[Rfam]
Nucleotides: 091
Stems, first nucleotide, its partner, number of pairs: 001091030032060012
Number, partner (000 for none) and nucleotide at each position: 001091c002090c003089a004088a005087a006086g007085u008084c009083a010082c011081a012080c013079a014078g015077g016076u017075u018074a019073u020072a021071g022070a023069u024068c025067u026066g027065g028064a029063u030062u031000g032060g033059a034058a035057c036056c037055c038054a039053g040052g041051u042050a043049g044000c045000c046000a047000g048000a049043c050042u051041g052040c053039c054038u055037g056036g057035g058034u059033u060032u061000g062030a063029a064028u065027c066026c067025a068024g069023a070022u071021c072020u073019g074018u075017a076016a077015c078014c079013u080012g081011u082010g083009u084008g085007a086006c087005u088004u089003u090002g091001g
A member of the RNA family "mir-607 microRNA precursor family" from Macaca mulatta, 91 nucleotides long. The family's consensus secondary structure was predicted with RNAalifold. Its family is annotated with miRNA-mediated post-transcriptional gene silencing and RISC complex in the Gene Ontology. It is one of the family's seed sequences. Taxonomically the source falls in Macaca (Eukaryota, Bilateria, Craniata, Eutheria).